Rfam assigns this 102-nucleotide sequence from Clostridium chauvoei to the family "Purine riboswitch aptamer". The organism belongs to Clostridium chauvoei, within Bacteria. The family's consensus secondary structure is taken from published work. It scores 86 bits against the family's covariance model. Rfam describes the family as follows. Riboswitches are metabolite binding domains within certain messenger RNAs that serve as precision sensors for their corresponding targets.

RNA sequence: AUAUUCGUAAAAGAGAUAACUCAUAUAAAUAUGACAAUAAGGGUCAUAAGUUUCUACCAGGAUACCGUAAAUAUCUUGACUAUGAGUGCGAAUAUUAAUUCU
Numbered sequence: 001a002u003a004u005u006c007g008u009a010a011a012a013g014a015g016a017u018a019a020c021u022c023a024u025a026u027a028a029a030u031a032u033g034a035c036a037a038u039a040a041g042g043g044u045c046a047u048a049a050g051u052u053u054c055u056a057c058c059a060g061g062a063u064a065c066c067g068u069a070a071a072u073a074u075c076u077u078g079a080c081u082a083u084g085a086g087u088g089c090g091a092a093u094a095u096u097a098a099u100u101c102u
Stems, first nucleotide, its partner, number of pairs: 019087007030048006058078007